RNA: Plastid-ccsA-ndhD-1 3UTR RNA
RNA sequence: AUGAACCAGUGAGAACCAUGCGAAUCCCCGCACUACUUGAUUCGCAUGGUUCUCACAA
Numbered sequence: 001a002u003g004a005a006c007c008a009g010u011g012a013g014a015a016c017c018a019u020g021c022g023a024a025u026c027c028c029c030g031c032a033c034u035a036c037u038u039g040a041u042u043c044g045c046a047u048g049g050u051u052c053u054c055a056c057a058a
Base pairs, nucleotide, nucleotide: 009056010055011054012053013052014051015050016049017048018047019046020045021044022043023042024041025040026039